[Rfam]
RNA sequence: GGCGAUAAACGCGCAGAGAUAGGCGGAUCGGACCCGGGUGCGAUGCCCGGCGGCUCCACCAGUUUCAUCCCUCAUUCGGGGAUUGUAUGGGGCCGAAAUAGGAUCGACGGACGUUGACGGCUGUUGCUUUUGCUCGGGUGGUCCCGUCACAGGCCAAACAGCAUAGUUGCGAAUGACAACAACGCUGAAGAGUUCGCCCUCGCUGCGUAA
Numbered sequence: 001g002g003c004g005a006u007a008a009a010c011g012c013g014c015a016g017a018g019a020u021a022g023g024c025g026g027a028u029c030g031g032a033c034c035c036g037g038g039u040g041c042g043a044u045g046c047c048c049g050g051c052g053g054c055u056c057c058a059c060c061a062g063u064u065u066c067a068u069c070c071c072u073c074a075u076u077c078g079g080g081g082a083u084u085g086u087a088u089g090g091g092g093c094c095g096a097a098a099u100a101g102g103a104u105c106g107a108c109g110g111a112c113g114u115u116g117a118c119g120g121c122u123g124u125u126g127c128u129u130u131u132g133c134u135c136g137g138g139u140g141g142u143c144c145c146g147u148c149a150c151a152g153g154c155c156a157a158a159c160a161g162c163a164u165a166g167u168u169g170c171g172a173a174u175g176a177c178a179a180c181a182a183c184g185c186u187g188a189a190g191a192g193u194u195c196g197c198c199c200u201c202g203c204u205g206c207g208u209a210a
Stems, first nucleotide, its partner, number of pairs: 001134005014123003024113002028110003034050005051095007135146004
Source information
The family of this 210-nucleotide RNA sequence from Vitreimonas silvestris is "permuted transfer-messenger RNA". By type it is a non-coding RNA gene. Pairs were carried over by alignment from the consensus structure, which is taken from published work. It scores 128 bits against the family's covariance model. Rfam describes the family as follows. Bacterial tmRNA, also known as 10Sa RNA or SsrA, is named for its dual tRNA and mRNA-like properties. Its role is to liberate the mRNA from a stalled ribosome. To accomplish this part of the tmRNA is used as a reading frame that ends in a translation stop signal. Taxonomically the source falls in Vitreimonas (Bacteria, Pseudomonadati, Alphaproteobacteria, Hyphomonadales).